[Rfam]
RNA sequence: AGUAAAUUAGCUCAGUUGGUCAGAGCAUGGUGCUAGUAACACCAAGGUCACAGGCUCAAUCCCUGUAUGGGCCA
Numbered sequence: 001a002g003u004a005a006a007u008u009a010g011c012u013c014a015g016u017u018g019g020u021c022a023g024a025g026c027a028u029g030g031u032g033c034u035a036g037u038a039a040c041a042c043c044a045a046g047g048u049c050a051c052a053g054g055c056u057c058a059a060u061c062c063c064u065g066u067a068u069g070g071g072c073c074a
Base pairs, nucleotide, nucleotide: 002072003071006068007067010026011025012024013023028044029043030042031041032040050066051065052064053063054062

Rfam assigns this 74-nucleotide sequence from Oreocharis arfaki to the family "tRNA". The family's RNA type in Rfam is transfer RNA. A search with the family's covariance model found it, with a score of 45 bits.